[Rfam]
RNA sequence: GCCACUGUAGCUCAUCUGGCAGAGCAGCACAUUCGUAACGUGCAGGUGGCCGGUUCGACCCCGGCCAGUGGCU
Numbered sequence: 001g002c003c004a005c006u007g008u009a010g011c012u013c014a015u016c017u018g019g020c021a022g023a024g025c026a027g028c029a030c031a032u033u034c035g036u037a038a039c040g041u042g043c044a045g046g047u048g049g050c051c052g053g054u055u056c057g058a059c060c061c062c063g064g065c066c067a068g069u070g071g072c073u
Stems, first nucleotide, its partner, number of pairs: 001072007010025004027043004049065005
Rfam assigns this 73-nucleotide RNA sequence from Lentihominibacter hominis to the family "tRNA".
NCBI's taxonomy places the organism under Bacteria, Bacillota, Clostridia, Peptostreptococcales, Lentihominibacter.
It is annotated as a transfer RNA.
About the family: Transfer RNA (tRNA) molecules are approximately 80 nucleotides in length.
A search with the family's covariance model found it, with a score of 54 bits.